[Rfam]
This 208-nucleotide sequence from Pyrobaculum calidifontis belongs to the Rfam family "RNaseP truncated form". Its Rfam clan is "RNaseP clan". Pyrobaculum and Caldivirga RNase P RNAs are reported as the smallest naturally occurring form of RNase P. They function as trans-acting precursor tRNA-processing ribozymes. Lineage of the source: Archaea > Thermoprotei > Thermoproteales > Thermoproteaceae > Pyrobaculum calidifontis. Rfam's curators put it in the seed alignment.
RNA sequence: GGGGCGCCGAGGGGAACGGGGCAAGCCCGGAGACGGGCCGCCCCUGGAACCUCCCGCCCGCCCGCGGAGGUCCCCGGCGGGCCGCCGAAAGGCGGGGGUAAAAACCAGCCGGGGACGCGGCCCCCAAACAGGGCCAAUGAGACCGCGGCGAGGCCCGGGUAGGGGGCAAGAUCAAUACCCCAACAGAAGCGGGGGUACGCGGCGCCCC
Dot-bracket structure: (((((((((.(((....(((((..(((((....))))).))))).............((((........(((((((((...(((((....)))))((.......)).)))))))))))))..(((.....(((((.....(.......)..))))).....))).............)))...................)))))))))

It is annotated as a ribozyme.